[Rfam]
RNA sequence: GUCUCAAUGAUUAUAUGCCUUUUAUAGGUAAUAUACGCUAUUCUCAUUGGUAUUGUUGCCAAUAAGAUGAAAACCUAAGAUGUAUAUGAGAC
Dot-bracket structure: (((((..................................................................................)))))
The record is a 92-nucleotide RNA from Papaver somniferum, which matches "Small nucleolar RNA U54" in Rfam. Taxonomically the source falls in Papaver (Eukaryota, Embryophyta, Magnoliopsida, Ranunculales). By type it is a C/D-box small nucleolar RNA. From the family's description: U54 is a C/D box small nucleolar RNA, which acts as a methylation guide for 18S ribosomal RNA in plants.